[Rfam]
The record is a 97-nucleotide sequence from Lates calcarifer, which matches "Vault RNA" in Rfam. Pairs were carried over by alignment from the consensus structure, which is taken from published work.
RNA sequence: GCACCGGUUUAGCUCAGUGGUUACUUCCUACACCGAAGUUUCCAUUCUACGGUCCGCGGGCUGCAGGGUUCGACCACGGGCGCUGUCCGGUGUUUUG
Numbered sequence: 001g002c003a004c005c006g007g008u009u010u011a012g013c014u015c016a017g018u019g020g021u022u023a024c025u026u027c028c029u030a031c032a033c034c035g036a037a038g039u040u041u042c043c044a045u046u047c048u049a050c051g052g053u054c055c056g057c058g059g060g061c062u063g064c065a066g067g068g069u070u071c072g073a074c075c076a077c078g079g080g081c082g083c084u085g086u087c088c089g090g091u092g093u094u095u096u097g
Base pairs, nucleotide, nucleotide: 002092003091004090005089006088007087012081013080014079015078017077018076019075020074026073027072
Overview: It is annotated as a non-coding RNA gene. NCBI's taxonomy places the organism under Eukaryota, Opisthokonta, Bilateria, Euacanthomorphacea, Lates.